[Rfam]
Record summary
The family of this 153-nucleotide sequence from Aurantimonas coralicida is "Alphaproteobacterial sRNA ar9".
RNA sequence: AUAACAAAAGGCGCCGGCAGGUGCGAUUUCUGCGGUCUAGUCUUGGGAGGACGCGAUUUCCGGCGCGGCAGUUGCCGCAGCCCCGAUCAACGUCAUCGGAGCGAAAUCCAGACACGCGACUUUGGAUGCAAGGCGAAAGCCUUGCAUUUUUUU
Numbered sequence: 001a002u003a004a005c006a007a008a009a010g011g012c013g014c015c016g017g018c019a020g021g022u023g024c025g026a027u028u029u030c031u032g033c034g035g036u037c038u039a040g041u042c043u044u045g046g047g048a049g050g051a052c053g054c055g056a057u058u059u060c061c062g063g064c065g066c067g068g069c070a071g072u073u074g075c076c077g078c079a080g081c082c083c084c085g086a087u088c089a090a091c092g093u094c095a096u097c098g099g100a101g102c103g104a105a106a107u108c109c110a111g112a113c114a115c116g117c118g119a120c121u122u123u124g125g126a127u128g129c130a131a132g133g134c135g136a137a138a139g140c141c142u143u144g145c146a147u148u149u150u151u152u153u
Stems, first nucleotide, its partner, number of pairs: 003153002006150001011024005031118004040052004055108005062082003065078003083099005127146008

NCBI's taxonomy places the organism under Bacteria, Pseudomonadota, Hyphomicrobiales, Aurantimonadaceae, Aurantimonas coralicida.